[Rfam]
RNA sequence: CCUCUGAGGGGAAAGGUUAUAUCGAUUAUGAGGAAUCGAAGCAUAAGCGUAUAGCUUUUCCCCUUUGGUG
Numbered sequence: 001c002c003u004c005u006g007a008g009g010g011g012a013a014a015g016g017u018u019a020u021a022u023c024g025a026u027u028a029u030g031a032g033g034a035a036u037c038g039a040a041g042c043a044u045a046a047g048c049g050u051a052u053a054g055c056u057u058u059u060c061c062c063c064u065u066u067g068g069u070g
Base pairs, nucleotide, nucleotide: 003068004067006065007064009062010061011060013058014057017054018053019052020051021050026046027045028044029043030042
Dot-bracket structure: ..((.((.(((.((..(((((....(((((...........)))))...)))))..)).))).)).))..